[Rfam]
Record summary
The record is a 59-nucleotide RNA from Poecilia formosa, which matches "Selenocysteine insertion sequence 1" in Rfam. Rfam 15.1 lists 3,793 matches to the family in 721 species. From the family's description: The incorporation of selenocysteine into a protein sequence is directed by an in-frame UGA codon (usually a stop codon) within the coding region of the mRNA. Selenoprotein mRNAs contain a conserved secondary structure in the 3' UTR that is required for the distinction of UGA stop from UGA selenocysteine. The selenocysteine insertion sequence (SECIS) is around 60 nt in length and adopts a hairpin structure which is sufficiently well-defined and conserved to act as a computational screen for selenoprotein genes. The match comes from Rfam's covariance-model search (36 bits). Rfam classes the family as a cis-regulatory element.

RNA sequence: GUUUCUUAAUGACGGCCGCAGAUGAAACCAUUGGGAUCUGUGACCAGAUGAGGUGAAAC
Dot-bracket structure: (((((........((.(((((((....((....))))))))).)).........)))))
Numbered sequence: 001g002u003u004u005c006u007u008a009a010u011g012a013c014g015g016c017c018g019c020a021g022a023u024g025a026a027a028c029c030a031u032u033g034g035g036a037u038c039u040g041u042g043a044c045c046a047g048a049u050g051a052g053g054u055g056a057a058a059c
Stems, first nucleotide, its partner, number of pairs: 001059005014045002017042007028035002